The record is a 183-nucleotide RNA from Kroppenstedtia pulmonis, which matches "Lysine riboswitch aptamer" in Rfam. It scores 108 bits against the family's covariance model. Its family is annotated with lysine biosynthetic process in the Gene Ontology.
[Rfam]
RNA sequence: CGUGUGAUUAGAGGUGCGGGGAUCACCAGUACUUAUCCGGAGGCGCGGUGCCGAAGAAGGAGAGGAAAGGGAUAUCCGCCGAAACAUUUCCCUUCACCGCAUAGGGAAAUGUUGGGUCCGUAUCCGAACAGGAGCGGAACUGUCACGGAGAAAGAAUUUUUUUCGUGGAGCACUAUGUCACCG
Numbered sequence: 001c002g003u004g005u006g007a008u009u010a011g012a013g014g015u016g017c018g019g020g021g022a023u024c025a026c027c028a029g030u031a032c033u034u035a036u037c038c039g040g041a042g043g044c045g046c047g048g049u050g051c052c053g054a055a056g057a058a059g060g061a062g063a064g065g066a067a068a069g070g071g072a073u074a075u076c077c078g079c080c081g082a083a084a085c086a087u088u089u090c091c092c093u094u095c096a097c098c099g100c101a102u103a104g105g106g107a108a109a110u111g112u113u114g115g116g117u118c119c120g121u122a123u124c125c126g127a128a129c130a131g132g133a134g135c136g137g138a139a140c141u142g143u144c145a146c147g148g149a150g151a152a153a154g155a156a157u158u159u160u161u162u163u164c165g166u167g168g169a170g171c172a173c174u175a176u177g178u179c180a181c182c183g
Stems, first nucleotide, its partner, number of pairs: 006178001009175003016079005022073003032064003036061003083113011114141002117138005123132002143168009
Dot-bracket structure: .....(..(((....(((((.(((.......(((.(((....................))))))......))).)))))...(((((((((((.........)))))))))))((.(((((.((......)).))))).)).(((((((((........)))))))))....)))..).....